[Rfam]
RNA sequence: UUCAUCGAGGGGCGCUGCGACGUGAUUGUUUCCCAAAAGAAACUUUAAUCCGCUAGGCUCGGUGACAGCAGACAUGACAUCAGUCAUUUCAACGGCGCUCACUUCUA
Numbered sequence: 001u002u003c004a005u006c007g008a009g010g011g012g013c014g015c016u017g018c019g020a021c022g023u024g025a026u027u028g029u030u031u032c033c034c035a036a037a038a039g040a041a042a043c044u045u046u047a048a049u050c051c052g053c054u055a056g057g058c059u060c061g062g063u064g065a066c067a068g069c070a071g072a073c074a075u076g077a078c079a080u081c082a083g084u085c086a087u088u089u090c091a092a093c094g095g096c097g098c099u100c101a102c103u104u105c106u107a
Base pairs, nucleotide, nucleotide: 002065003064004063005062006061007060008059021052022051024049026047